The family of this 188-nucleotide RNA from Carnegiea gigantea is "small nucleolar RNA snoR127". On this family, see Chen and Wu, Nucleic Acids Res 2009: "Mining small RNA sequencing data: a new approach to identify small nucleolar RNAs in Arabidopsis". Taxonomically the source falls in Carnegiea (Eukaryota, Streptophytina, Tracheophyta, Magnoliopsida). The base pairs follow the family's consensus structure, which was predicted with RNAalifold. It is annotated as a C/D-box small nucleolar RNA.
[Rfam]
RNA sequence: CUGGAAUGAUGCAAUUUAGCCAAAUCUGAUAUAAUGUGCUCCUUGUGGCUUUUUUUUCCACCCUGGGCACGUCGAGUGGCUUUUACUGAAGUCACCCGAGGGGCAUGUGUGCCUUGGAUGAGAUGCCACAAGUAGAAGCGCAUCUUUGUGAUCGAUAAAUUUAGAGAUUGGUUGUCAUGCUGACCAGA
Numbered sequence: 001c002u003g004g005a006a007u008g009a010u011g012c013a014a015u016u017u018a019g020c021c022a023a024a025u026c027u028g029a030u031a032u033a034a035u036g037u038g039c040u041c042c043u044u045g046u047g048g049c050u051u052u053u054u055u056u057u058c059c060a061c062c063c064u065g066g067g068c069a070c071g072u073c074g075a076g077u078g079g080c081u082u083u084u085a086c087u088g089a090a091g092u093c094a095c096c097c098g099a100g101g102g103g104c105a106u107g108u109g110u111g112c113c114u115u116g117g118a119u120g121a122g123a124u125g126c127c128a129c130a131a132g133u134a135g136a137a138g139c140g141c142a143u144c145u146u147u148g149u150g151a152u153c154g155a156u157a158a159a160u161u162u163a164g165a166g167a168u169u170g171g172u173u174g175u176c177a178u179g180c181u182g183a184c185c186a187g188a
Stems, first nucleotide, its partner, number of pairs: 001187004